[Rfam]
RNA sequence: CAGUCGGUGAAAGUCCGAUCGGGAGAAAAGGCUUCCCUCCCGUAGCUGAGAGGCACCGUGGAACGAAAGCGAGACGGUGGAGCCCUCUGACAACACGCUCAUUAGGAGCGUGGCAAAACUCCAGGUUGUAACAUAG
Numbered sequence: 001c002a003g004u005c006g007g008u009g010a011a012a013g014u015c016c017g018a019u020c021g022g023g024a025g026a027a028a029a030g031g032c033u034u035c036c037c038u039c040c041c042g043u044a045g046c047u048g049a050g051a052g053g054c055a056c057c058g059u060g061g062a063a064c065g066a067a068a069g070c071g072a073g074a075c076g077g078u079g080g081a082g083c084c085c086u087c088u089g090a091c092a093a094c095a096c097g098c099u100c101a102u103u104a105g106g107a108g109c110g111u112g113g114c115a116a117a118a119c120u121c122c123a124g125g126u127u128g129u130a131a132c133a134u135a136g
Stems, first nucleotide, its partner, number of pairs: 020042005049088005054079006064069001095111006113129003
A member of the RNA family "Group II catalytic intron D1-D4-4" from Desulfosporosinus sp. I2, 136 nucleotides long. A search with the family's covariance model found it, with a score of 113 bits. About the family: Group II introns are found in rRNA, tRNA and mRNA of organelles in fungi, plants and protists, and also in mRNA in bacteria. Rfam links the family to the GO term Group II intron splicing. On this family, see Chu et al., EMBO J 2001: "Control of branch-site choice by a group II intron". The organism belongs to Desulfosporosinus, within Bacteria.